The family of this 189-nucleotide RNA is "U2 spliceosomal RNA".
It is one of the family's seed sequences.
Nucleotides: 189
Stems, first nucleotide, its partner, number of pairs: 007026003011022004047066006068084005112142003117137001119135001124131002146181005152174003156170001
Number, partner (000 for none) and nucleotide at each position: 001000a002000u003000c004000a005000c006000u007026u008025c009024u010000u011022g012021g013020c014019c015000u016000u017000u018000u019014g020013g021012c022011u023000a024009a025008g026007a027000u028000c029000a030000a031000g032000u033000a034000u035000a036000g037000u038000a039000u040000c041000u042000g043000u044000u045000u046000u047066u048065a049064u050063c051062a052061g053000u054000u055000u056000c057000a058000u059000a060000u061052c062051u063050g064049a065048u066047a067000u068084g069083u070082c071081c072080u073000c074000u075000a076000u077000c078000c079000a080072a081071g082070g083069a084068c085000a086000a087000u088000a089000u090000a091000u092000u093000a094000c095000a096000u097000g098000g099000a100000u101000u102000u103000u104000u105000g106000g107000a108000a109000a110000c111000a112142g113141g114140a115000u116000c117137g118000a119135a120000u121000a122000a123000g124131a125130g126000c127000u128000u129000g130125c131124u132000a133000c134000a135119u136000c137117c138000a139000c140114u141113c142112c143000a144000c145000a146181c147180a148179u149178u150177g151000a152174c153173c154172u155000a156170g157000u158000a159000u160000u161000g162000c163000a164000g165000u166000a167000c168000u169000u170156c171000c172154a173153g174152g175000a176000a177150c178149a179148g180147u181146g182000c183000a184000c185000c186000c187000a188000a189000a

By type it is a spliceosomal small nuclear RNA.